A member of the RNA family "SAM riboswitch aptamer (S box leader)" from Rubrobacter radiotolerans, 150 nucleotides long.

[Rfam]
RNA sequence: AGCUCAUCGAGAGCGACGGAGGGACGGGCCCUGUGAAGUCGCGGCGACCGGCGAGAGGAUCGAAGGACGAGGUCUUCUCGCGCUGGUGCCAAGUCCCGCGGAGACAAGAGAGGCCGCAAGGAGCGCGGCCGGUCUUCCGAGAGAUGAGCC
Number, nucleotide and partner (000 for none) at each position: 001a000002g149003c148004u147005c146006a145007u144008c143009g000010a000011g000012a000013g042014c041015g040016a039017c038018g000019g000020a000021g031022g030023g029024a000025c098026g097027g096028g095029c023030c022031c021032u000033g000034u000035g000036a000037a000038g017039u016040c015041g014042c013043g090044g089045c088046g087047a000048c086049c085050g000051g081052c080053g079054a078055g077056a076057g075058g074059a073060u072061c071062g000063a000064a000065g000066g000067a000068c000069g000070a000071g061072g060073u059074c058075u057076u056077c055078u054079c053080g052081c051082g000083c000084u000085g049086g048087u046088g045089c044090c043091a000092a000093g000094u142095c028096c027097c026098g025099c139100g138101g137102a136103g135104a000105c000106a000107a000108g000109a000110g000111a000112g000113g000114c000115c000116g000117c000118a000119a000120g000121g000122a000123g000124c000125g000126c000127g000128g000129c000130c000131g000132g000133u000134c000135u103136u102137c101138c100139g099140a000141g000142a094143g008144a007145u006146g005147a004148g003149c002150c000
The source organism's lineage runs through Bacteria, Bacillati, Actinomycetota, Rubrobacteria and Rubrobacter.